This 100-nucleotide RNA sequence from Propionispora sp. 2/2-37 belongs to the Rfam family "Bacterial small signal recognition particle RNA". A search with the family's covariance model found it, with a score of 74 bits. Clan: SRP clan. The signal recognition particle (SRP) is a universally conserved ribonucleoprotein involved in the co-translational targeting of proteins to membranes.
RNA sequence: UGUUGGGUCUUGCGCAAUAGGAACUCAUGAACUCCGCCAGGUCCGGAAGGGAGCAACGGUAAGUGAUCAUUUCUAUGUGCCGCAAGGGUGCCUGAUUAUU
Numbered sequence: 001u002g003u004u005g006g007g008u009c010u011u012g013c014g015c016a017a018u019a020g021g022a023a024c025u026c027a028u029g030a031a032c033u034c035c036g037c038c039a040g041g042u043c044c045g046g047a048a049g050g051g052a053g054c055a056a057c058g059g060u061a062a063g064u065g066a067u068c069a070u071u072u073c074u075a076u077g078u079g080c081c082g083c084a085a086g087g088g089u090g091c092c093u094g095a096u097u098a099u100u
Base pairs, nucleotide, nucleotide: 004094005093006092007091008090009086010085011084012083013082014081015077017076018075019074020073021072022071025066026065027064028063034059035058036057042051043050044049